The record is a 93-nucleotide sequence from Zoogloea dura, which matches "Selenocysteine transfer RNA" in Rfam. Rfam 15.1 lists 4,211 matches to the family in 3,344 species.

RNA sequence: GGAAGGGACACGACCCCCGGUGGGGCGACUGGUCUUCAAAACCAGGAGGGGCCGUCAAACGGUUCCUGGUGGGUUCGACUCCCAUUCUCUUCC
Numbered sequence: 001g002g003a004a005g006g007g008a009c010a011c012g013a014c015c016c017c018c019g020g021u022g023g024g025g026c027g028a029c030u031g032g033u034c035u036u037c038a039a040a041a042c043c044a045g046g047a048g049g050g051g052c053c054g055u056c057a058a059a060c061g062g063u064u065c066c067u068g069g070u071g072g073g074u075u076c077g078a079c080u081c082c083c084a085u086u087c088u089c090u091u092c093c
Base pairs, nucleotide, nucleotide: 001093002092003091004090005089006088007087008086014025015024016023017022029045030044031043032042033041048066049065050064051063052062070084071083072082073081
About this RNA: The source organism's lineage runs through Bacteria, Pseudomonadati, Pseudomonadota, Betaproteobacteria and Zoogloea. The family's consensus secondary structure is taken from published work.